The record is a 70-nucleotide sequence from Lutibacter sp. HS1-25, which matches "S15-Flavobacteria ribosomal protein leader" in Rfam. Rfam classes the family as a cis-regulatory leader. The family's consensus secondary structure is taken from published work. On this family, see Eckert and Weinberg, BMC Microbiol 2020: "Discovery of 20 novel ribosomal leader candidates in bacteria and archaea".
[Rfam]
RNA sequence: UAUAUUUGCAGCCGCUAAUGCUUGCGCAAUAGCGAUACAUAAAAAUUAUUAAUAAAUUAAUGUUAGCAUG
Numbered sequence: 001u002a003u004a005u006u007u008g009c010a011g012c013c014g015c016u017a018a019u020g021c022u023u024g025c026g027c028a029a030u031a032g033c034g035a036u037a038c039a040u041a042a043a044a045a046u047u048a049u050u051a052a053u054a055a056a057u058u059a060a061u062g063u064u065a066g067c068a069u070g
Base pairs, nucleotide, nucleotide: 014033015032016031017030019028